[Rfam]
RNA sequence: UGUUGUCCACUGCCCUUUUUCUGUUGCGCUACUGGAAACUGACAUGAGCAGUGCAAUAUUAAAAGGGCAUUGGAUGAUUA
Numbered sequence: 001u002g003u004u005g006u007c008c009a010c011u012g013c014c015c016u017u018u019u020u021c022u023g024u025u026g027c028g029c030u031a032c033u034g035g036a037a038a039c040u041g042a043c044a045u046g047a048g049c050a051g052u053g054c055a056a057u058a059u060u061a062a063a064a065g066g067g068c069a070u071u072g073g074a075u076g077a078u079u080a
Stems, first nucleotide, its partner, number of pairs: 001080002005075005012068008022058009
A member of the RNA family "mir-130 microRNA precursor family" from Cyprinodon variegatus, 80 nucleotides long. Pairs were carried over by alignment from the consensus structure, which was predicted with PFOLD. A search with the family's covariance model found it, with a score of 58 bits. For this family Rfam cites "Identification of tissue-specific microRNAs from mouse" (Lagos-Quintana et al., Curr Biol, 2002).